RNA sequence: CCUCCUUUUCUUGGCGGGGAGUGGGCGUGCGGUCCCGCUCCCUGUUAUGUGUGGAGGCAGAGGGAAAGGGGCUCCAGCCCCCUCGGCGUCAUGUCUUCGGUGCCCGCGGCCUUCUAUCCGCUGGUUCUAUCCUCAAGCGCCGGGACACGU
Numbered sequence: 001c002c003u004c005c006u007u008u009u010c011u012u013g014g015c016g017g018g019g020a021g022u023g024g025g026c027g028u029g030c031g032g033u034c035c036c037g038c039u040c041c042c043u044g045u046u047a048u049g050u051g052u053g054g055a056g057g058c059a060g061a062g063g064g065a066a067a068g069g070g071g072c073u074c075c076a077g078c079c080c081c082c083u084c085g086g087c088g089u090c091a092u093g094u095c096u097u098c099g100g101u102g103c104c105c106g107c108g109g110c111c112u113u114c115u116a117u118c119c120g121c122u123g124g125u126u127c128u129a130u131c132c133u134c135a136a137g138c139g140c141c142g143g144g145a146c147a148c149g150u
Base pairs, nucleotide, nucleotide: 001057002056003055004054005053015044016043017042018041019040020039022037023036024035025034084142085141086140087139088138089137103124104123106121107120108119109118
RNA: Small nucleolar RNA SNORA57